Notes:
The record is a 280-nucleotide sequence from Metabacillus sediminilitoris, which matches "T-box leader" in Rfam.

[Rfam]
RNA sequence: CAAUAAACAUUGAUUGGGAAGAGUACAAUUGUUAUCUCUUUACAGAGAGAGAAAUCAUUUUGCUGGAAGGUUUCUUACGCAGAUACAUUGGAAUGUCGCCCAUGAGUUGCUUCUUUGAAUUGUUAGUAGGAGAAGCCGGUAAAGACCGUUAUCAUAUUGAGAGCAUAGACUAAUACUAUGUAUGAGCAUCUUAUUUGCCCUUGGCUGAUCAAAGAGCUUUUACAUUUUUGUCUAUGAAAAAAGGUGGUACCGCGAAAAAUAUUCUCCUUUCGUCCUUUUA
Numbered sequence: 001c002a003a004u005a006a007a008c009a010u011u012g013a014u015u016g017g018g019a020a021g022a023g024u025a026c027a028a029u030u031g032u033u034a035u036c037u038c039u040u041u042a043c044a045g046a047g048a049g050a051g052a053a054a055u056c057a058u059u060u061u062g063c064u065g066g067a068a069g070g071u072u073u074c075u076u077a078c079g080c081a082g083a084u085a086c087a088u089u090g091g092a093a094u095g096u097c098g099c100c101c102a103u104g105a106g107u108u109g110c111u112u113c114u115u116u117g118a119a120u121u122g123u124u125a126g127u128a129g130g131a132g133a134a135g136c137c138g139g140u141a142a143a144g145a146c147c148g149u150u151a152u153c154a155u156a157u158u159g160a161g162a163g164c165a166u167a168g169a170c171u172a173a174u175a176c177u178a179u180g181u182a183u184g185a186g187c188a189u190c191u192u193a194u195u196u197g198c199c200c201u202u203g204g205c206u207g208a209u210c211a212a213a214g215a216g217c218u219u220u221u222a223c224a225u226u227u228u229u230g231u232c233u234a235u236g237a238a239a240a241a242a243g244g245u246g247g248u249a250c251c252g253c254g255a256a257a258a259a260u261a262u263u264c265u266c267c268u269u270u271c272g273u274c275c276u277u278u279u280a
Stems, first nucleotide, its partner, number of pairs: 007107002015102004026090003030087003040079001051074006110135007137148003164236007241277004252273005

About this RNA:
The base pairs follow the family's consensus structure, which is taken from published work. About the family: Uncharged tRNA acts as the effector for transcription antitermination of genes in the T-box leader family. T-boxes are found upstream of many aminoacyl-tRNA synthetase genes and some amino acid biosynthetic genes usually in Gram-positive bacteria. The anticodon of a specific tRNA base pairs to a specifier sequence within the T-box motif, and the NCCA acceptor tail of the tRNA base pairs to a conserved bulge in the T-box antiterminator hairpin. A reference for the family is Grundy et al. (1994), "Interaction between the acceptor end of tRNA and the T box stimulates antitermination in the Bacillus subtilis tyrS gene: a new role for the discriminator base", J Bacteriol. NCBI's taxonomy places the organism under Bacteria, Bacilli, Caryophanales, Bacillaceae, Metabacillus. Gene Ontology term of the family: tRNA binding.